[Rfam]
RNA sequence: GGUCAUGAGCGCCAGCAUCGAGCCCCGGCUUGCUGGCCGGCAACCCUCCAACCGCGGUGGGGUGCUCCGGGUGAAGACCUGGUUACUCGGUUGCAGAACGCAACCGAAGAACAAGCGCGGGUC
Numbered sequence: 001g002g003u004c005a006u007g008a009g010c011g012c013c014a015g016c017a018u019c020g021a022g023c024c025c026c027g028g029c030u031u032g033c034u035g036g037c038c039g040g041c042a043a044c045c046c047u048c049c050a051a052c053c054g055c056g057g058u059g060g061g062g063u064g065c066u067c068c069g070g071g072u073g074a075a076g077a078c079c080u081g082g083u084u085a086c087u088c089g090g091u092u093g094c095a096g097a098a099c100g101c102a103a104c105c106g107a108a109g110a111a112c113a114a115g116c117g118c119g120g121g122u123c
Base pairs, nucleotide, nucleotide: 001079002078003077004076009038011037012036013035014034015033016032021030022029039066040065041064044062045061046060048057049056082112083111084110087107088106089105090104091103092102093101094100

SAM (S-adenosyl methionine) riboswitch aptamer: a 123-nucleotide sequence from Rhodococcoides kyotonense.
The match comes from Rfam's covariance-model search (108 bits).